[Rfam]
RNA sequence: GAGCAUUAACUAAAACAUCUCACAUACGCCGUCACAUAGUUCUGGGUGCCCGAAAGGGGUUGGAUUAUGGGGUGUGUGGAGGCCUAAC
Numbered sequence: 001g002a003g004c005a006u007u008a009a010c011u012a013a014a015a016c017a018u019c020u021c022a023c024a025u026a027c028g029c030c031g032u033c034a035c036a037u038a039g040u041u042c043u044g045g046g047u048g049c050c051c052g053a054a055a056g057g058g059g060u061u062g063g064a065u066u067a068u069g070g071g072g073u074g075u076g077u078g079g080a081g082g083c084c085u086a087a088c
Base pairs, nucleotide, nucleotide: 023078024077025076026075027074028073029072030071035069036068037067038066039065040064041063042062048060049059050058051057

Rfam assigns this 88-nucleotide RNA from Reinekea marinisedimentorum to the family "t44 RNA".
The source organism's lineage runs through Bacteria, Gammaproteobacteria, Oceanospirillales, Saccharospirillaceae and Reinekea.
Rfam describes the family as follows. This family consists of a number of bacterial RNA genes of between 135 and 170 bases in length. The t44 gene has been identified in several species of enteric bacteria but homologs have also been identified in Pseudomonas and Coxiella species.
The family's RNA type in Rfam is small RNA.
The family's consensus secondary structure was predicted with LocARNA.